[Rfam]
RNA sequence: ACAUUUUCGAGAACCAUUUGAAUCAAGUAAUGGAAAUGGAAUGAUUCAAAUGGUUCUUGA
Numbered sequence: 001a002c003a004u005u006u007u008c009g010a011g012a013a014c015c016a017u018u019u020g021a022a023u024c025a026a027g028u029a030a031u032g033g034a035a036a037u038g039g040a041a042u043g044a045u046u047c048a049a050a051u052g053g054u055u056c057u058u059g060a
Stems, first nucleotide, its partner, number of pairs: 007060019
RNA: Plastid-ccsA-ndhD-1 3UTR RNA
Organism: Rosa chinensis